This 284-nucleotide RNA sequence from Sapajus apella belongs to the Rfam family "HIF-1 alpha IRES". A search with the family's covariance model found it, with a score of 197 bits. On this family, see Lang et al., Mol Biol Cell 2002: "Hypoxia-inducible factor-1alpha mRNA contains an internal ribosome entry site that allows efficient translation during normoxia and hypoxia". Rfam links the family to the GO term ribosome binding. About the family: This family represents the hypoxia-inducible factor 1-alpha internal ribosome entry site. HIF-1a is a subunit of the HIF-1 transcription factor, which induces transcription of several genes involved in the cellular response to hypoxia. The family's RNA type in Rfam is internal ribosome entry site. NCBI's taxonomy places the organism under Eukaryota, Metazoa, Euteleostomi, Haplorrhini, Sapajus.
RNA sequence: CUCGUCUGAGGGGACGCGAGGAUCACCCUGGCUGUCGCUCCGGCCACUGCCGCGGGCUGGGCCCUGACAAGCCGCCCAAGGACAGACAGGCUCCGAGCCUGGCUCGUACCCCAGCGUUGCCGCCCACUUCUCUUCCUUCUGUUCCCACCAGCGGUUUCCCGCCUCGCACCUCCACCUCUGGACUUGCCUUUCCUUCUCUCCGCGCGUGGAGGGAGCCAGCGCUUACGCCGGAGCGAGCCAGAGGGCUGCCCUCCGUGAAGGCACGCGGGGACCGAGUCACCAUG
Numbered sequence: 001c002u003c004g005u006c007u008g009a010g011g012g013g014a015c016g017c018g019a020g021g022a023u024c025a026c027c028c029u030g031g032c033u034g035u036c037g038c039u040c041c042g043g044c045c046a047c048u049g050c051c052g053c054g055g056g057c058u059g060g061g062c063c064c065u066g067a068c069a070a071g072c073c074g075c076c077c078a079a080g081g082a083c084a085g086a087c088a089g090g091c092u093c094c095g096a097g098c099c100u101g102g103c104u105c106g107u108a109c110c111c112c113a114g115c116g117u118u119g120c121c122g123c124c125c126a127c128u129u130c131u132c133u134u135c136c137u138u139c140u141g142u143u144c145c146c147a148c149c150a151g152c153g154g155u156u157u158c159c160c161g162c163c164u165c166g167c168a169c170c171u172c173c174a175c176c177u178c179u180g181g182a183c184u185u186g187c188c189u190u191u192c193c194u195u196c197u198c199u200c201c202g203c204g205c206g207u208g209g210a211g212g213g214a215g216c217c218a219g220c221g222c223u224u225a226c227g228c229c230g231g232a233g234c235g236a237g238c239c240a241g242a243g244g245g246c247u248g249c250c251c252u253c254c255g256u257g258a259a260g261g262c263a264c265g266c267g268g269g270g271a272c273c274g275a276g277u278c279a280c281c282a283u284g
Stems, first nucleotide, its partner, number of pairs: 001013003016032002019029003034062003084156002087154001130153001132151002134147001184219003188215004197210003230251002233249003